[Rfam]
RNA sequence: GUUCAUGAGCAAAGAAUUGUUAUAAAUCGAAGCUUACAAAAGGAUGAUUCCAAUCAUCACUGCAACAUGCUUUGGGGAAAGUCUCCGACCAUUCACACGGAAAUCGUGAUGAGAAUUUUAUCAACUCAUCAAGACUUGAAUCUUUACAAAACUUUGAACCCAUCCUAUUCGCCUAAUGAAGCAGAACUUGGAGAUUGUUGAUGGUGAUUCAUGUUUCCGGUUGUUUUUCAUCUUGCAUUUGUGCUAAAUUGGAACCCCAACAUCUUGAUUCGAUUGUCCUGGAACAAUACUCCUCUUGAGUCUUUGUGAUUAUCAUGUUUCCACAUGGUUUUUCAAUUGUUGUGAUGCAGGUGUAAUUGGUCUUGAUAUACGUUGGAUCUAAUGAUGGCUUCAAAACCGUGGGAGAUUAAUGACUGGCUUGCAAUCCCAUAUUGAAUCCUUCCACUUCUCUUUAUGGGAUUGAAUGUUUGGGGGUGAGAUUCGGAACUAUUUCAUGUCUUUCUGAACUUUCAUCAGAUCAUGUAUUGAUUCUGGUUGAAUUCUUCGGUAUUUGGGGUGGAUUGCAUCACCUAAACGAUAGUUAUAACAAUUGGUUAUUCCUCAUGGGAAUGAUUAACCCAAUGGAGCUUACUCUUGCUUCAUGAA
Number, nucleotide and partner (000 for none) at each position: 001g000002u645003u644004c643005a642006u641007g000008a638009g637010c636011a635012a634013a000014g000015a591016a590017u589018u588019g587020u586021u000022a000023u000024a000025a000026a000027u075028c074029g073030a072031a071032g070033c069034u000035u000036a000037c000038a000039a000040a000041a000042g000043g058044a057045u056046g055047a054048u053049u000050c000051c000052a000053a048054u047055c046056a045057u044058c043059a000060c000061u000062g000063c000064a000065a000066c000067a000068u000069g033070c032071u031072u030073u029074g028075g027076g000077g000078a000079a629080a628081g627082u000083c626084u625085c624086c623087g000088a000089c000090c000091a000092u000093u000094c000095a000096c108097a107098c106099g105100g000101a000102a000103a000104u000105c099106g098107u097108g096109a129110u128111g127112a126113g125114a000115a000116u000117u000118u000119u000120a000121u000122c000123a000124a000125c113126u112127c111128a110129u109130c000131a000132a000133g000134a000135c000136u000137u000138g000139a000140a000141u000142c000143u000144u000145u000146a000147c000148a000149a000150a000151a000152c000153u000154u000155u000156g000157a000158a000159c000160c000161c000162a000163u000164c000165c000166u000167a000168u000169u000170c000171g000172c000173c000174u000175a000176a000177u000178g000179a000180a000181g000182c000183a000184g000185a000186a000187c000188u000189u000190g000191g000192a000193g000194a000195u000196u000197g000198u000199u000200g000201a000202u000203g000204g000205u000206g000207a000208u000209u000210c000211a000212u000213g000214u000215u000216u000217c000218c000219g000220g000221u000222u000223g000224u000225u000226u000227u000228u000229c000230a000231u000232c000233u000234u000235g000236c000237a000238u000239u000240u000241g000242u000243g000244c000245u000246a000247a000248a000249u000250u000251g000252g000253a000254a000255c000256c000257c000258c000259a000260a000261c000262a000263u000264c000265u000266u000267g000268a000269u000270u000271c000272g000273a000274u000275u000276g000277u000278c000279c000280u000281g000282g000283a000284a000285c000286a000287a000288u000289a000290c000291u000292c000293c000294u000295c000296u000297u000298g000299a000300g000301u000302c000303u000304u000305u000306g000307u000308g000309a000310u000311u000312a000313u000314c000315a000316u000317g000318u000319u000320u000321c000322c000323a000324c000325a000326u000327g000328g000329u000330u000331u000332u000333u000334c000335a000336a000337u000338u000339g000340u000341u000342g000343u000344g000345a000346u000347g000348c000349a000350g000351g000352u000353g000354u000355a000356a000357u000358u000359g000360g000361u000362c000363u000364u000365g000366a000367u000368a000369u000370a000371c000372g000373u000374u000375g000376g000377a000378u000379c000380u000381a000382a000383u000384g000385a000386u000387g000388g000389c000390u000391u000392c000393a000394a000395a000396a000397c000398c000399g000400u000401g000402g000403g000404a000405g000406a000407u000408u000409a000410a000411u000412g000413a000414c000415u000416g000417g000418c000419u000420u000421g000422c000423a000424a000425u000426c000427c000428c000429a000430u000431a000432u000433u000434g000435a000436a000437u000438c000439c000440u000441u000442c000443c000444a000445c000446u000447u000448c000449u000450c000451u000452u000453u000454a000455u000456g000457g000458g000459a000460u000461u000462g000463a000464a000465u000466g000467u000468u000469u000470g000471g000472g000473g000474g000475u000476g000477a000478g000479a000480u000481u000482c000483g000484g000485a000486a000487c000488u000489a000490u000491u000492u000493c000494a000495u000496g000497u000498c000499u000500u000501u000502c000503u000504g000505a000506a000507c000508u000509u000510u000511c000512a000513u000514c000515a000516g000517a000518u000519c000520a000521u000522g000523u000524a000525u000526u534527g000528a532529u000530u000531c000532u528533g000534g526535u000536u000537g000538a000539a000540u000541u000542c000543u000544u000545c000546g000547g000548u000549a000550u000551u000552u000553g000554g000555g000556g000557u000558g000559g000560a000561u000562u000563g000564c000565a000566u000567c000568a000569c000570c000571u000572a000573a000574a000575c000576g000577a000578u000579a000580g000581u000582u000583a000584u000585a000586a020587c019588a018589a017590u016591u015592g000593g613594u612595u611596a610597u609598u608599c000600c000601u000602c000603a000604u000605g000606g000607g000608a598609a597610u596611g595612a594613u593614u000615a000616a000617c000618c000619c000620a000621a000622u000623g086624g085625a084626g083627c081628u080629u079630a000631c000632u000633c000634u012635u011636g010637c009638u008639u000640c000641a006642u005643g004644a003645a002
Description
This 645-nucleotide RNA sequence from Hansenula anomala belongs to the Rfam family "RNase MRP". From the family's description: RNase MRP is an enzymatically active ribonucleoprotein with two distinct roles in eukaryotes. In mitochondria it plays a direct role in the initiation of mitochondrial DNA replication. In the nucleus it is involved in precursor rRNA processing, where it cleaves the internal transcribed spacer 1 between 18S and 5.8S rRNAs. Despite distinct functions, RNase MRP has been shown to be evolutionarily related to RNase P. Like eukaryotic RNase P, RNase MRP is not catalytically active without associated protein subunits. Its family is annotated with rRNA processing, ribonuclease MRP complex and ribonuclease MRP activity in the Gene Ontology. The literature on the family includes a 1993 paper in FASEB J by Schmitt et al., "Secondary structure of RNase MRP RNA as predicted by phylogenetic comparison". By type it is a ribozyme. Pairs were carried over by alignment from the consensus structure, which is taken from published work.